[Rfam]
Nucleotides: 083
Stems, first nucleotide, its partner, number of pairs: 010075007018067005026059006034051004
Number, partner (000 for none) and nucleotide at each position: 001000a002000g003000g004000c005000u006000c007000g008000g009000g010075g011074a012073g013072a014071g015070a016069g017000a018067g019066g020065c021064a022063g023000g024000g025000u026059c027058u028057g029056a030055u031054c032000u033000g034051u035050a036049g037048c038000c039000u040000c041000u042000g043000u044000g045000g046000c047000a048037g049036c050035u051034g052000u053000u054031g055030a056029u057028c058027a059026g060000c061000a062000c063022u064021u065020g066019c067018c068000c069016c070015u071014c072013u073012c074011u075010u076000u077000c078000g079000c080000u081000c082000u083000g